[Rfam]
RNA sequence: CGGUUUAUACAUUCGGUUCUCUAGCUUUAUGAUAUCAGAUACACUCAUACAGCUAGAUAACCAAAGAGAAAAACCG
Numbered sequence: 001c002g003g004u005u006u007a008u009a010c011a012u013u014c015g016g017u018u019c020u021c022u023a024g025c026u027u028u029a030u031g032a033u034a035u036c037a038g039a040u041a042c043a044c045u046c047a048u049a050c051a052g053c054u055a056g057a058u059a060a061c062c063a064a065a066g067a068g069a070a071a072a073a074c075c076g
Stems, first nucleotide, its partner, number of pairs: 001076005008069001012065002015062004020057007028049005
Dot-bracket structure: (((((..(...((.((((.(((((((.(((((............))))).))))))).)))).))...)..)))))

mir-9/mir-79 microRNA precursor family: a 76-nucleotide RNA sequence from Ophiophagus hannah. It is one of the family's seed sequences.